The family of this 86-nucleotide RNA from Digitaria exilis is "MIR2275 microRNA precursor family". Its family is annotated with miRNA-mediated post-transcriptional gene silencing and RISC complex in the Gene Ontology. Taxonomically the source falls in Digitaria (Eukaryota, Viridiplantae, Poales, Panicoideae).
RNA sequence: CAAUUGAAUUUGAGAAUUGGAUGGAACCAAAUCUUGUUGCGAAAGCAGGCGAGGUUUGGUUUCCUCCAAUAUCUCAAGUUUAGUUG
Numbered sequence: 001c002a003a004u005u006g007a008a009u010u011u012g013a014g015a016a017u018u019g020g021a022u023g024g025a026a027c028c029a030a031a032u033c034u035u036g037u038u039g040c041g042a043a044a045g046c047a048g049g050c051g052a053g054g055u056u057u058g059g060u061u062u063c064c065u066c067c068a069a070u071a072u073c074u075c076a077a078g079u080u081u082a083g084u085u086g
Stems, first nucleotide, its partner, number of pairs: 004083005011076004016070006023063008032054002
Dot-bracket structure: ...(((((..((((.((((((.((((((((.((...................)).)))))))).))))))..))))..)))))...